[Rfam]
RNA sequence: GAAACUGACGUUGAAGUCCUUCGGGAGACUGGUAGAGGGGAGGAACGUCCGGGCUCCAUAGAGCAGGGUGCCAGAUAACGUCUGGGGGGCGCGAGCCCACGACAAGUGCAGCAGAGAGAAGACCGCCGAUGGCCUCAUUUCUUCGGAAGGGGCACAGGUAAGGCUGAAAGGGUGCGGUAAGAGCGCACCGUGCGACUGGCAACAGUUCGUAGCAAGGUAAACUCCACCCGGAGCAAGAUCAAAUAGGCCCUCGCAUUGCGCUGCUCGCGUAUGGGGGCGGGUAGAUUGCUUGAGCCUGUGAGCGAUUGCAGGCCUAGACGAAUGGUUACCGCCGCGCAAGCGGAACAGAACCCGGCGUAUGUGUCAACUCCACCU
Numbered sequence: 001g002a003a004a005c006u007g008a009c010g011u012u013g014a015a016g017u018c019c020u021u022c023g024g025g026a027g028a029c030u031g032g033u034a035g036a037g038g039g040g041a042g043g044a045a046c047g048u049c050c051g052g053g054c055u056c057c058a059u060a061g062a063g064c065a066g067g068g069u070g071c072c073a074g075a076u077a078a079c080g081u082c083u084g085g086g087g088g089g090c091g092c093g094a095g096c097c098c099a100c101g102a103c104a105a106g107u108g109c110a111g112c113a114g115a116g117a118g119a120a121g122a123c124c125g126c127c128g129a130u131g132g133c134c135u136c137a138u139u140u141c142u143u144c145g146g147a148a149g150g151g152g153c154a155c156a157g158g159u160a161a162g163g164c165u166g167a168a169a170g171g172g173u174g175c176g177g178u179a180a181g182a183g184c185g186c187a188c189c190g191u192g193c194g195a196c197u198g199g200c201a202a203c204a205g206u207u208c209g210u211a212g213c214a215a216g217g218u219a220a221a222c223u224c225c226a227c228c229c230g231g232a233g234c235a236a237g238a239u240c241a242a243a244u245a246g247g248c249c250c251u252c253g254c255a256u257u258g259c260g261c262u263g264c265u266c267g268c269g270u271a272u273g274g275g276g277g278c279g280g281g282u283a284g285a286u287u288g289c290u291u292g293a294g295c296c297u298g299u300g301a302g303c304g305a306u307u308g309c310a311g312g313c314c315u316a317g318a319c320g321a322a323u324g325g326u327u328a329c330c331g332c333c334g335c336g337c338a339a340g341c342g343g344a345a346c347a348g349a350a351c352c353c354g355g356c357g358u359a360u361g362u363g364u365c366a367a368c369u370c371c372a373c374c375u
Stems, first nucleotide, its partner, number of pairs: 001371001003369001006366005013329001015327001017040006024033001045358003049355005054233004061266004066229005071085005086100001087098004101224002106222002108218002123163002125159003130154002133151003171189006190213001191211005196205003237287004247278006257271005294313008